[Rfam]
RNA sequence: UCGUACAAGGGCAAACCCGUCGCGAGGCGGGGACGCAAAGCCUCCGGUCUUGGUCGGUCUGCAUCCGGGUCAAGAUAGCGGGGCUGCCAGAU
Numbered sequence: 001u002c003g004u005a006c007a008a009g010g011g012c013a014a015a016c017c018c019g020u021c022g023c024g025a026g027g028c029g030g031g032g033a034c035g036c037a038a039a040g041c042c043u044c045c046g047g048u049c050u051u052g053g054u055c056g057g058u059c060u061g062c063a064u065c066c067g068g069g070u071c072a073a074g075a076u077a078g079c080g081g082g083g084c085u086g087c088c089a090g091a092u
Stems, first nucleotide, its partner, number of pairs: 011036002016031006034078001039085004044081003047076009
RNA: c-di-GMP-I-GGC riboswitch aptamer
Organism: Thiobacillus sp.